RNA sequence: AUGAUAAAUUCGAGAGAGACUACACGGGAAACCGAUGUGGCGCCGAAGGGGAAAGGAGUACCAAAGCUCUCAGGCAAAAGGAUUGAAUUUGGACG
Numbered sequence: 001a002u003g004a005u006a007a008a009u010u011c012g013a014g015a016g017a018g019a020c021u022a023c024a025c026g027g028g029a030a031a032c033c034g035a036u037g038u039g040g041c042g043c044c045g046a047a048g049g050g051g052a053a054a055g056g057a058g059u060a061c062c063a064a065a066g067c068u069c070u071c072a073g074g075c076a077a078a079a080g081g082a083u084u085g086a087a088u089u090u091g092g093a094c095g
Stems, first nucleotide, its partner, number of pairs: 006090008020040004042075003045071002049069003055062002
RNA: Glycine riboswitch aptamer